[Rfam]
RNA sequence: GGAGUUGGCCAGGCAAUCGUCGCUUAUCGGGCAUUCGUGUGUUGAUAAGGGGAGGAAAGUCCGGGCUCCAUAGGGCAGGGUGCCAGGUAAUGCCUGGGCGGCGAGAGCCGACGACAAGUGCAGCAGAGAGCAGACCGCCUGUUGGUUAUUCGUAACCAAUCGGUAAGGGUGAAAGGGUGCGGUAAGAGCGCACCGCGCAGCUGGCAACAGUUUGUGGCAAGGUAAACUCCACCCGGAGCAAGACCAAAUAGGAUCCCGUAUGGCGUGGCCCACGUUGGGAUCGGGUGUGUUGCUUGAGCCAGUGAGUGAUUGCUGGCCUAGAUGAAUGAUUGCCCAAGACAGAACCCGGCUUAUCGGCCAACUCCGACU
Numbered sequence: 001g002g003a004g005u006u007g008g009c010c011a012g013g014c015a016a017u018c019g020u021c022g023c024u025u026a027u028c029g030g031g032c033a034u035u036c037g038u039g040u041g042u043u044g045a046u047a048a049g050g051g052g053a054g055g056a057a058a059g060u061c062c063g064g065g066c067u068c069c070a071u072a073g074g075g076c077a078g079g080g081u082g083c084c085a086g087g088u089a090a091u092g093c094c095u096g097g098g099c100g101g102c103g104a105g106a107g108c109c110g111a112c113g114a115c116a117a118g119u120g121c122a123g124c125a126g127a128g129a130g131c132a133g134a135c136c137g138c139c140u141g142u143u144g145g146u147u148a149u150u151c152g153u154a155a156c157c158a159a160u161c162g163g164u165a166a167g168g169g170u171g172a173a174a175g176g177g178u179g180c181g182g183u184a185a186g187a188g189c190g191c192a193c194c195g196c197g198c199a200g201c202u203g204g205c206a207a208c209a210g211u212u213u214g215u216g217g218c219a220a221g222g223u224a225a226a227c228u229c230c231a232c233c234c235g236g237a238g239c240a241a242g243a244c245c246a247a248a249u250a251g252g253a254u255c256c257c258g259u260a261u262g263g264c265g266u267g268g269c270c271c272a273c274g275u276u277g278g279g280a281u282c283g284g285g286u287g288u289g290u291u292g293c294u295u296g297a298g299c300c301a302g303u304g305a306g307u308g309a310u311u312g313c314u315g316g317c318c319u320a321g322a323u324g325a326a327u328g329a330u331u332g333c334c335c336a337a338g339a340c341a342g343a344a345c346c347c348g349g350c351u352u353a354u355c356g357g358c359c360a361a362c363u364c365c366g367a368c369u
Stems, first nucleotide, its partner, number of pairs: 001365010011354001012334007020052002023049008057352003061349005066238004073271004078234005083097005098112001099110004113229002118227002120223002135168002137164003141160008176194006195218001196216005201210003242291003252282006262276005298317008